This 246-nucleotide part of an RNA from Kosmotoga olearia belongs to the Rfam family "Bacterial large subunit ribosomal RNA". The sequence is in the family's curated seed alignment.
[Rfam]
RNA sequence: GGAGGCUUGAGGAGGGUCACCCCUAGUACGAGAGGACCGGGGUGAGUGGACCACUGGUGAACCAGCUGUCGUGCAAGCGGCAGUAGCUGGGUAGCCAACGUCCAUGAGCGAUAACCGCUGAAAGCAUCUAAGCGGGAAACGUGCUCCAAGACGAGGCCUCCAAGGGUCGUCCGAGAAGAGGACGUAGAUAGGCUGGAGGUGUAAGCCCCGCGAGGGGUUGAGCCGACCAGUACUAAUCACCCGAGA
Numbered sequence: 001g002g003a004g005g006c007u008u009g010a011g012g013a014g015g016g017u018c019a020c021c022c023c024u025a026g027u028a029c030g031a032g033a034g035g036a037c038c039g040g041g042g043u044g045a046g047u048g049g050a051c052c053a054c055u056g057g058u059g060a061a062c063c064a065g066c067u068g069u070c071g072u073g074c075a076a077g078c079g080g081c082a083g084u085a086g087c088u089g090g091g092u093a094g095c096c097a098a099c100g101u102c103c104a105u106g107a108g109c110g111a112u113a114a115c116c117g118c119u120g121a122a123a124g125c126a127u128c129u130a131a132g133c134g135g136g137a138a139a140c141g142u143g144c145u146c147c148a149a150g151a152c153g154a155g156g157c158c159u160c161c162a163a164g165g166g167u168c169g170u171c172c173g174a175g176a177a178g179a180g181g182a183c184g185u186a187g188a189u190a191g192g193c194u195g196g197a198g199g200u201g202u203a204a205g206c207c208c209c210g211c212g213a214g215g216g217g218u219u220g221a222g223c224c225g226a227c228c229a230g231u232a233c234u235a236a237u238c239a240c241c242c243g244a245g246a
Base pairs, nucleotide, nucleotide: 001161002160003159004158005157006156007155008154011147012146013145014144017045018044019043020042021041022040023039046105047104048103049102050101051100055097056096057095062090063089064088065087066086067082068081069080070079071078072077108142109141110140115135116134117133118132119131164242165241166240167239168184169183170182171181172180189235190234191233192231193230194229195228196227198224199223205218206217207216208215209214